[Rfam]
Antisense RNA which regulates isiA expression: a 178-nucleotide sequence from Hyella patelloides. The source organism's lineage runs through Bacteria, Cyanobacteriota, Pleurocapsales, Hyella and Hyella patelloides.
RNA sequence: GAUAACCAAAAAUAGUUACAGGAUUAAGAGUAGGAUUGCUGACAAUUCGUACAUUAGCAAUAGUAGCAUCGUAAAUACCACCCCAAAAUAUUGCCUUGCCAGCAAAAAAUAAUGCAGCCACACCCAAAAAGAUUAAGUGAUGACCCAAAAUAAAACCCAGUUUUUGCGGGUCAUUCCA
Numbered sequence: 001g002a003u004a005a006c007c008a009a010a011a012a013u014a015g016u017u018a019c020a021g022g023a024u025u026a027a028g029a030g031u032a033g034g035a036u037u038g039c040u041g042a043c044a045a046u047u048c049g050u051a052c053a054u055u056a057g058c059a060a061u062a063g064u065a066g067c068a069u070c071g072u073a074a075a076u077a078c079c080a081c082c083c084c085a086a087a088a089u090a091u092u093g094c095c096u097u098g099c100c101a102g103c104a105a106a107a108a109a110u111a112a113u114g115c116a117g118c119c120a121c122a123c124c125c126a127a128a129a130a131g132a133u134u135a136a137g138u139g140a141u142g143a144c145c146c147a148a149a150a151u152a153a154a155a156c157c158c159a160g161u162u163u164u165u166g167c168g169g170g171u172c173a174u175u176c177c178a
Base pairs, nucleotide, nucleotide: 136175137174138173139172140171141170144169145168148165